RNA sequence: CGCCGAUGCCCUCCUUGGGCGUUUCCUCCUUGACUUGGCCGCCGACGCGACGCGUUGGCGGCCUUUCUUGCACAGA
Numbered sequence: 001c002g003c004c005g006a007u008g009c010c011c012u013c014c015u016u017g018g019g020c021g022u023u024u025c026c027u028c029c030u031u032g033a034c035u036u037g038g039c040c041g042c043c044g045a046c047g048c049g050a051c052g053c054g055u056u057g058g059c060g061g062c063c064u065u066u067c068u069u070g071c072a073c074a075g076a
Stems, first nucleotide, its partner, number of pairs: 008020004039061009
Dot-bracket structure: .......((((.....))))..................(((((((((.....)))))))))...............
Description: Makes More Granules Regulator RNA (mmgR): a 76-nucleotide sequence from Rhodoblastus sp. It scores 54 bits against the family's covariance model. Clan: suhB sRNA clan. From the family's description: SuhB later renamed mmgR (makes more granules regulator) was a putative non-coding RNA found multiple times in the Agrobacterium tumefaciens genome and related alpha-proteobacteria. Rfam classes the family as a small RNA.